RNA sequence: UGGCGGGGGAGCACUACAACCGGAGGAGCCUGCGGUUUAAUUGGACUCAACGCCGGACAUCUCACCAGCAUCGACUGUAGUAAUGACGAUCAGGUUGAUGACCUUAUCCGAGCUUCAGAGAGGAGGUGCAUGGCCGCCGUCAGCUCGUACCGUGAGGCGUCCUGUUAAGUCAGGCAACGAGCGAGACCCGCAUCCUUACUUGCCAGCAGUAUCGCGAGAUAGCUGGGGACAGUAGGGAGACCGCCGUGGCUAACACGGAGGAAGGAACGGGCAACGGUAGGUCAGUAUGCCCCGAAUGUGCUGGGCAACACGCGGGCUACAAUGGUCGAGACAAAGGGUUCCAACUCCGAAAGGAGACGGUAAUCUCAGAAACUCGAUCGUAGUUCGGAUUGUGGGCUGCAACUCGCCCACAUGAAGCUGGAUUCGGUAGUAAUCGCGUGUCACAAGCGCGCGGUGAAUACGUCCCUGCUCCUUGCACACACCGCCCGUCAAAGCACCCGAGUGAGGUCCGGAUGAGGCGCGCCACGCGCGUCGAAUCUGGGCUUCGCAAGGGGGCUUAAGUCGUAACAAGGUAGCCGUAGGGGAAUCUGCGGCUGGAUC
Numbered sequence: 001u002g003g004c005g006g007g008g009g010a011g012c013a014c015u016a017c018a019a020c021c022g023g024a025g026g027a028g029c030c031u032g033c034g035g036u037u038u039a040a041u042u043g044g045a046c047u048c049a050a051c052g053c054c055g056g057a058c059a060u061c062u063c064a065c066c067a068g069c070a071u072c073g074a075c076u077g078u079a080g081u082a083a084u085g086a087c088g089a090u091c092a093g094g095u096u097g098a099u100g101a102c103c104u105u106a107u108c109c110g111a112g113c114u115u116c117a118g119a120g121a122g123g124a125g126g127u128g129c130a131u132g133g134c135c136g137c138c139g140u141c142a143g144c145u146c147g148u149a150c151c152g153u154g155a156g157g158c159g160u161c162c163u164g165u166u167a168a169g170u171c172a173g174g175c176a177a178c179g180a181g182c183g184a185g186a187c188c189c190g191c192a193u194c195c196u197u198a199c200u201u202g203c204c205a206g207c208a209g210u211a212u213c214g215c216g217a218g219a220u221a222g223c224u225g226g227g228g229a230c231a232g233u234a235g236g237g238a239g240a241c242c243g244c245c246g247u248g249g250c251u252a253a254c255a256c257g258g259a260g261g262a263a264g265g266a267a268c269g270g271g272c273a274a275c276g277g278u279a280g281g282u283c284a285g286u287a288u289g290c291c292c293c294g295a296a297u298g299u300g301c302u303g304g305g306c307a308a309c310a311c312g313c314g315g316g317c318u319a320c321a322a323u324g325g326u327c328g329a330g331a332c333a334a335a336g337g338g339u340u341c342c343a344a345c346u347c348c349g350a351a352a353g354g355a356g357a358c359g360g361u362a363a364u365c366u367c368a369g370a371a372a373c374u375c376g377a378u379c380g381u382a383g384u385u386c387g388g389a390u391u392g393u394g395g396g397c398u399g400c401a402a403c404u405c406g407c408c409c410a411c412a413u414g415a416a417g418c419u420g421g422a423u424u425c426g427g428u429a430g431u432a433a434u435c436g437c438g439u440g441u442c443a444c445a446a447g448c449g450c451g452c453g454g455u456g457a458a459u460a461c462g463u464c465c466c467u468g469c470u471c472c473u474u475g476c477a478c479a480c481a482c483c484g485c486c487c488g489u490c491a492a493a494g495c496a497c498c499c500g501a502g503u504g505a506g507g508u509c510c511g512g513a514u515g516a517g518g519c520g521c522g523c524c525a526c527g528c529g530c531g532u533c534g535a536a537u538c539u540g541g542g543c544u545u546c547g548c549a550a551g552g553g554g555g556c557u558u559a560a561g562u563c564g565u566a567a568c569a570a571g572g573u574a575g576c577c578g579u580a581g582g583g584g585a586a587u588c589u590g591c592g593g594c595u596g597g598a599u600c
Stems, first nucleotide, its partner, number of pairs: 001479002003476003007473007016463002020427005025320001027318008035309002041056004065304007075118003080113002088108003092104003122293002125291004131287002133282003136278004143182006150157002161174004188270003193238007203227002207225003210221004241261002244258005324379007336367003341360002345356004386417001391412007433455008482571001484568001487564002490561001492558004497553003502548013517533007573596010